[Rfam]
RNA sequence: ACGAUGGAGAGUUUGAUCCUGGCUCAGGAUGAACGCUAGCGGCAGGCUUAACACAUGCAAGUCGAGGGGUAACAUUAGUGCUUGCACUAGAUGACGACCGGCGCACGGGUGCGUAACGCGUAUACAAUCUGCCUUUUACAGAGGGAUAGCCUUUAGAAAUGAAGAUUAACACCUCAUAGUAUCAUAAGAUGGCAUCAUUUAAUGAUUAAAACUUCGGUGGUAAAAGAUGAGUAUGCGUUCUAUUAGCUAGAUGGUAAGGUAACGGCUUACCAUGGCAACGAUAGAUAGGGGUCCUGAGAGGGAGAUCCCCCACACUGGUACUGAGACACGGACCAGACUCCUACGGGAGGCAGCAGUGAGGAAUAUUGGGCAAUGGAGGCAACUCUGACCCAGCCAUGCCGCGUGCAGGAAGACGGCCCUAUGGGUUGUAAACUGCUUUUAUACAGGAAGAAACCUUGGUACGUGUACCAAGCUGACGGUACUGUAAGAAUAAGCACCGGCUAACUCCGUGCCAGCAGCCGCGGUAAUACGGAGGGUGCAAGCGUUAUCCGGAAUCAUUG
Number, nucleotide and partner (000 for none) at each position: 001a000002c000003g000004a000005u000006g000007g000008a000009g025010a024011g023012u022013u021014u000015g000016a000017u000018c000019c000020u000021g013022g012023c011024u010025c009026a000027g550028g549029a548030u547031g000032a546033a545034c544035g543036c542037u541038a000039g402040c401041g400042g399043c398044a397045g395046g394047c360048u000049u000050a000051a000052c358053a357054c356055a000056u355057g354058c353059a000060a000061g102062u101063c100064g000065a000066g099067g098068g000069g095070u094071a000072a000073c000074a000075u090076u089077a088078g087079u086080g085081c000082u000083u000084g000085c080086a079087c078088u077089a076090g075091a000092u000093g000094a070095c069096g000097a000098c067099c066100g063101g062102c061103g000104c000105a000106c000107g000108g000109g313110u312111g311112c000113g000114u000115a000116a000117c000118g238119c237120g236121u235122a234123u233124a232125c231126a000127a000128u230129c229130u000131g000132c000133c226134u225135u224136u223137u222138a221139c220140a000141g175142a174143g173144g172145g000146a000147u000148a000149g166150c000151c164152u163153u162154u161155a160156g000157a000158a000159a000160u155161g154162a153163a152164g151165a000166u149167u000168a000169a000170c000171a000172c144173c143174u142175c141176a000177u000178a000179g000180u000181a206182u205183c204184a203185u202186a000187a200188g000189a198190u197191g196192g000193c000194a000195u000196c191197a190198u189199u000200u187201a000202a185203u184204g183205a182206u181207u000208a000209a000210a000211a218212c217213u000214u000215c000216g000217g212218u211219g000220g139221u138222a137223a136224a135225a134226g133227a000228u000229g129230a128231g125232u124233a123234u122235g121236c120237g119238u118239u285240c284241u283242a000243u000244u000245a000246g276247c275248u274249a000250g000251a273252u272253g271254g270255u269256a268257a267258g266259g000260u000261a000262a000263c000264g000265g000266c258267u257268u256269a255270c254271c253272a252273u251274g248275g247276c246277a000278a000279c000280g000281a000282u000283a241284g240285a239286u000287a000288g310289g309290g308291g307292u303293c302294c301295u300296g000297a000298g000299a000300g295301g294302g293303a292304g000305a000306u000307c291308c290309c289310c288311c111312a110313c109314a000315c336316u335317g334318g333319u332320a000321c000322u000323g000324a000325g000326a000327c000328a000329c000330g000331g000332a319333c318334c317335a316336g315337a000338c349339u348340c347341c346342u000343a000344c000345g000346g341347g340348a339349g338350g000351c000352a000353g058354c057355a056356g054357u053358g052359a000360g047361g000362a000363a000364u000365a000366u392367u000368g391369g390370g389371c000372a000373a000374u387375g386376g385377a384378g383379g000380c000381a000382a000383c378384u377385c376386u375387g374388a000389c370390c369391c368392a366393g000394c046395c045396a000397u044398g043399c042400c041401g040402c039403g000404u000405g436406c435407a434408g433409g000410a000411a000412g000413a000414c000415g427416g426417c425418c424419c000420u000421a000422u000423g000424g418425g417426u416427u415428g000429u000430a000431a000432a000433c408434u407435g406436c405437u000438u000439u000440u000441a000442u486443a485444c484445a483446g482447g000448a000449a000450g477451a000452a000453a000454c000455c000456u471457u470458g469459g000460u000461a000462c000463g000464u000465g000466u000467a000468c000469c458470a457471a456472g000473c000474u000475g000476a000477c450478g000479g000480u000481a000482c446483u445484g444485u443486a442487a000488g000489a000490a000491u000492a000493a000494g539495c538496a537497c536498c535499g000500g000501c000502u000503a000504a000505c534506u533507c532508c531509g530510u000511g000512c000513c000514a000515g522516c521517a000518g000519c000520c000521g516522c515523g000524g000525u000526a000527a000528u000529a000530c509531g508532g507533a506534g505535g498536g497537u496538g495539c494540a000541a037542g036543c035544g034545u033546u032547a030548u029549c028550c027551g000552g000553a000554a000555u000556c000557a000558u000559u000560g000